[Rfam]
RNA sequence: GUGCCUUCUUAAGGUUGAUGCAUUGCCUUAAGAGCCUAACACAGAAGGGUCAAGAACUCUCCAUAAAACCCAGAGAAGGGCUUGUAAAACUCCUCUCUAUACCCUGUCUGGAGUCACAGCU
Number, nucleotide and partner (000 for none) at each position: 001g000002u000003g050004c049005c048006u047007u046008c000009u044010u043011a000012a000013g000014g040015u039016u038017g037018a000019u000020g000021c032022a000023u000024u000025g000026c000027c000028u000029u000030a000031a000032g021033a000034g000035c000036c000037u017038a016039a015040c014041a000042c000043a010044g009045a000046a007047g006048g005049g004050u003051c000052a000053a000054g000055a000056a000057c000058u000059c113060u112061c111062c110063a109064u000065a000066a000067a000068a000069c000070c000071c000072a098073g097074a096075g095076a094077a000078g092079g091080g090081c000082u089083u088084g000085u000086a000087a000088a083089a082090c080091u079092c078093c000094u076095c075096u074097c073098u072099a000100u000101a000102c000103c000104c000105u000106g000107u000108c000109u063110g062111g061112a060113g059114u000115c000116a000117c000118a000119g000120c000121u000
RNA: Small nucleolar RNA SNORA26
Organism: Castor canadensis